This 316-nucleotide RNA sequence from Candidatus Methanogaster sp. belongs to the Rfam family "Archaeal signal recognition particle RNA".
Lineage of the source: Archaea > Methanobacteriati > Methanomicrobia > Methanosarcinales > Candidatus Methanogaster.
The family is grouped with related families in Rfam's "SRP clan".
On this family, see Batey et al., Science 2000: "Crystal structure of the ribonucleoprotein core of the signal recognition particle".
RNA sequence: UUGCGGGCUAGCCCGGGUAACCCGGCGUCACCUAUCACCCGAAACCGCCGAUAUGCGGGGGGCGAAGCCAAUGGAAGACAUACCAAACGCUAUUUAAGAUCGGAUGCCCAACAAUGAAUCUCCGUCCUGCGGGGAUGGCGUUGGUAGUGGAGUCUGCCGGAGGGCAGGUUUGCUAUCUCUGCUGCGGAAAACGGUUUAGGCCCGGAAGGGAGCGGACAUCACCGCAGACGCUUCAUCGCUUGUAGGAUCGCGGAGAGGAGGCGGAUCUCCGAACCACUGGAUGGUGGGCGGGUGGCAACCAUUGGCGCGCUCGCAU
Numbered sequence: 001u002u003g004c005g006g007g008c009u010a011g012c013c014c015g016g017g018u019a020a021c022c023c024g025g026c027g028u029c030a031c032c033u034a035u036c037a038c039c040c041g042a043a044a045c046c047g048c049c050g051a052u053a054u055g056c057g058g059g060g061g062g063c064g065a066a067g068c069c070a071a072u073g074g075a076a077g078a079c080a081u082a083c084c085a086a087a088c089g090c091u092a093u094u095u096a097a098g099a100u101c102g103g104a105u106g107c108c109c110a111a112c113a114a115u116g117a118a119u120c121u122c123c124g125u126c127c128u129g130c131g132g133g134g135a136u137g138g139c140g141u142u143g144g145u146a147g148u149g150g151a152g153u154c155u156g157c158c159g160g161a162g163g164g165c166a167g168g169u170u171u172g173c174u175a176u177c178u179c180u181g182c183u184g185c186g187g188a189a190a191a192c193g194g195u196u197u198a199g200g201c202c203c204g205g206a207a208g209g210g211a212g213c214g215g216a217c218a219u220c221a222c223c224g225c226a227g228a229c230g231c232u233u234c235a236u237c238g239c240u241u242g243u244a245g246g247a248u249c250g251c252g253g254a255g256a257g258g259a260g261g262c263g264g265a266u267c268u269c270c271g272a273a274c275c276a277c278u279g280g281a282u283g284g285u286g287g288g289c290g291g292g293u294g295g296c297a298a299c300c301a302u303u304g305g306c307g308c309g310c311u312c313g314c315a316u
Stems, first nucleotide, its partner, number of pairs: 002315007011063004015033004020028002038059004043054001067306008077296001079294003084288001088286008097278002100272005106266001108264002112260001119256007126246008134237004138231003143177005150171009182227006194217003201210003